[Rfam]
RNA: ASpks TB sRNA
Organism: Amycolatopsis jiangsuensis
RNA sequence: CUUCACCGACCCGAGCCACAACGGCCGCUCACGACCCUGCCCAUACGUCGCCAACAACGCCUGCGCCUC
Numbered sequence: 001c002u003u004c005a006c007c008g009a010c011c012c013g014a015g016c017c018a019c020a021a022c023g024g025c026c027g028c029u030c031a032c033g034a035c036c037c038u039g040c041c042c043a044u045a046c047g048u049c050g051c052c053a054a055c056a057a058c059g060c061c062u063g064c065g066c067c068u069c
Base pairs, nucleotide, nucleotide: 015025016024017023028065030063032059033058038053039052041050043048